[Rfam]
RNA: c-di-GMP-I riboswitch aptamer
RNA sequence: CGGCAUAUUGGGCAAACCUGGCGAAAGGCAGGGACGCAAAGCUAUGGGUCUAACGAAUUAUCAUCUAAGAUUGCCAAGCUGCAUUA
Numbered sequence: 001c002g003g004c005a006u007a008u009u010g011g012g013c014a015a016a017c018c019u020g021g022c023g024a025a026a027g028g029c030a031g032g033g034a035c036g037c038a039a040a041g042c043u044a045u046g047g048g049u050c051u052a053a054c055g056a057a058u059u060a061u062c063a064u065c066u067a068a069g070a071u072u073g074c075c076a077a078g079c080u081g082c083a084u085u086a
Stems, first nucleotide, its partner, number of pairs: 012037002017032004022027001040080004045076003048071003055065002